[Rfam]
RNA sequence: UGAGAGAACUCGGGUGAAGGAACUAGGCAAAAUGGUACCGUAACUUCGGGAGAAGGUACGCCCUUGAUGGUUAGUUGCCUGCGCAACAAAGCUGUUGAGGGCCGCAGAGACCAGGUGGCUGCGACUGUUUAUUAAAAACACAGCACUCUGCAAAUUCGUAAGAAGACGUAUAGGGUGUGACGCCUGCCCGGUGCCGGAAGGUUAAUUGAUGGGGUUAUCUUCGGAGAAGCUCUUGAUCGAAGCCCCGGUAAACGGCGGCCGUAACUAUAACGGUCCUAAGGUAGCGAAAUUCCUUGUCGGGUAAGUUCCGACCUGCACGAAUGGCGUAACGAUGGCCACACUGUCUCCACCCGAGACUCA
Numbered sequence: 001u002g003a004g005a006g007a008a009c010u011c012g013g014g015u016g017a018a019g020g021a022a023c024u025a026g027g028c029a030a031a032a033u034g035g036u037a038c039c040g041u042a043a044c045u046u047c048g049g050g051a052g053a054a055g056g057u058a059c060g061c062c063c064u065u066g067a068u069g070g071u072u073a074g075u076u077g078c079c080u081g082c083g084c085a086a087c088a089a090a091g092c093u094g095u096u097g098a099g100g101g102c103c104g105c106a107g108a109g110a111c112c113a114g115g116u117g118g119c120u121g122c123g124a125c126u127g128u129u130u131a132u133u134a135a136a137a138a139c140a141c142a143g144c145a146c147u148c149u150g151c152a153a154a155u156u157c158g159u160a161a162g163a164a165g166a167c168g169u170a171u172a173g174g175g176u177g178u179g180a181c182g183c184c185u186g187c188c189c190g191g192u193g194c195c196g197g198a199a200g201g202u203u204a205a206u207u208g209a210u211g212g213g214g215u216u217a218u219c220u221u222c223g224g225a226g227a228a229g230c231u232c233u234u235g236a237u238c239g240a241a242g243c244c245c246c247g248g249u250a251a252a253c254g255g256c257g258g259c260c261g262u263a264a265c266u267a268u269a270a271c272g273g274u275c276c277u278a279a280g281g282u283a284g285c286g287a288a289a290u291u292c293c294u295u296g297u298c299g300g301g302u303a304a305g306u307u308c309c310g311a312c313c314u315g316c317a318c319g320a321a322u323g324g325c326g327u328a329a330c331g332a333u334g335g336c337c338a339c340a341c342u343g344u345c346u347c348c349a350c351c352c353g354a355g356a357c358u359c360a
Stems, first nucleotide, its partner, number of pairs: 001360004009355008018346003035059005044049001060102006074087005103107001115339007122331002126140003143178008151168001155164003181326004186256003191253002193249005200244003211233005218225002257275006276280001286313001296312006
RNA: Bacterial large subunit ribosomal RNA, nucleotides 1658 to 2017
Organism: Legionella rubrilucens